[Rfam]
RNA: mir-283 microRNA precursor family
RNA sequence: UAAAGUAUUCAAAAAGUCAAAUGUCAGUGAGUAGUUCUCACUUUUAAUUGCUUGUUUUGAUUAAAACAAGCAAUUAAAAGUGAGAACUACUCACUGACAUCUGACUUUUUGAAUAC
Numbered sequence: 001u002a003a004a005g006u007a008u009u010c011a012a013a014a015a016g017u018c019a020a021a022u023g024u025c026a027g028u029g030a031g032u033a034g035u036u037c038u039c040a041c042u043u044u045u046a047a048u049u050g051c052u053u054g055u056u057u058u059g060a061u062u063a064a065a066a067c068a069a070g071c072a073a074u075u076a077a078a079a080g081u082g083a084g085a086a087c088u089a090c091u092c093a094c095u096g097a098c099a100u101c102u103g104a105c106u107u108u109u110u111g112a113a114u115a116c
Stems, first nucleotide, its partner, number of pairs: 013108006021100011034087021